[Rfam]
RNA: Lysine riboswitch aptamer
RNA sequence: AACUGAGGUAGAGGAGCAAAACUUAAAAGUAACAUUAUGGAGCUAAGCACAAUGAAGUAAUGUGAAAGGAUGUUUUGCCGAAGUUUAUAGAUAAUGCUUUAAAUCUAUAGACUGGGAUUGUAUAUAACAUAUAUAAUACUGUCACAUUUUGUGGAGCGCUAUCAUUCUA
Numbered sequence: 001a002a003c004u005g006a007g008g009u010a011g012a013g014g015a016g017c018a019a020a021a022c023u024u025a026a027a028a029g030u031a032a033c034a035u036u037a038u039g040g041a042g043c044u045a046a047g048c049a050c051a052a053u054g055a056a057g058u059a060a061u062g063u064g065a066a067a068g069g070a071u072g073u074u075u076u077g078c079c080g081a082a083g084u085u086u087a088u089a090g091a092u093a094a095u096g097c098u099u100u101a102a103a104u105c106u107a108u109a110g111a112c113u114g115g116g117a118u119u120g121u122a123u124a125u126a127a128c129a130u131a132u133a134u135a136a137u138a139c140u141g142u143c144a145c146a147u148u149u150u151g152u153g154g155a156g157c158g159c160u161a162u163c164a165u166u167c168u169a
Stems, first nucleotide, its partner, number of pairs: 007163005016078007024070001032063007082113011114140002117137008142154005